[Rfam]
RNA sequence: AUUCAUUGAGGGCAGAAAAGGUUCCUGCCGCACCUUAUUGAGGUACCUGAGAUGCUGGAUACACCGACCAGCCAAUGAAU
Numbered sequence: 001a002u003u004c005a006u007u008g009a010g011g012g013c014a015g016a017a018a019a020g021g022u023u024c025c026u027g028c029c030g031c032a033c034c035u036u037a038u039u040g041a042g043g044u045a046c047c048u049g050a051g052a053u054g055c056u057g058g059a060u061a062c063a064c065c066g067a068c069c070a071g072c073c074a075a076u077g078a079a080u
Base pairs, nucleotide, nucleotide: 001080002079003078004077005076006075007074008073011029012028013027014026015025020065021064022063031049032044033043034042035041054072055071056070057069058068
Background:
This 80-nucleotide RNA belongs to the Rfam family "skipping-rope RNA". By type it is a small RNA. The base pairs follow the family's consensus structure, which is taken from published work.